[Rfam]
A member of the RNA family "Hepatitis C virus stem-loop I" from Orthohepacivirus hominis, 47 nucleotides long. A reference for the family is Pirakitikulr et al. (2016), "The Coding Region of the HCV Genome Contains a Network of Regulatory RNA Structures", Mol Cell. Rfam links the family to the GO term viral RNA genome replication. It is annotated as a cis-regulatory element. Taxonomically the source falls in Hepatitis C virus subtype 2a (Viruses, Orthornavirae, Amarillovirales, Orthohepacivirus).
RNA sequence: GACGCGGGUGGCUUCAGCCCUCAGAAAACUUGGGGCGCCACCCCUCA
Numbered sequence: 001g002a003c004g005c006g007g008g009u010g011g012c013u014u015c016a017g018c019c020c021u022c023a024g025a026a027a028a029c030u031u032g033g034g035g036c037g038c039c040a041c042c043c044c045u046c047a
Stems, first nucleotide, its partner, number of pairs: 006043006019035006

The family's consensus secondary structure was predicted with RNAfold.